[Rfam]
RNA sequence: CUGUUAUCAAGAAAGGUGGAGGGAAUAGACCCGUUGAAACCUUAGCAACCCUUUAAAAUUAUCAUACAACUUAAUAAUAUUAAAGAAGGUGCUACAUUCUAUCCCAUUAGAGGAAUAGAUAACGA
Numbered sequence: 001c002u003g004u005u006a007u008c009a010a011g012a013a014a015g016g017u018g019g020a021g022g023g024a025a026u027a028g029a030c031c032c033g034u035u036g037a038a039a040c041c042u043u044a045g046c047a048a049c050c051c052u053u054u055a056a057a058a059u060u061a062u063c064a065u066a067c068a069a070c071u072u073a074a075u076a077a078u079a080u081u082a083a084a085g086a087a088g089g090u091g092c093u094a095c096a097u098u099c100u101a102u103c104c105c106a107u108u109a110g111a112g113g114a115a116u117a118g119a120u121a122a123c124g125a
Stems, first nucleotide, its partner, number of pairs: 002124007013043005021032003026101004044093004049089002051085006097117001102114003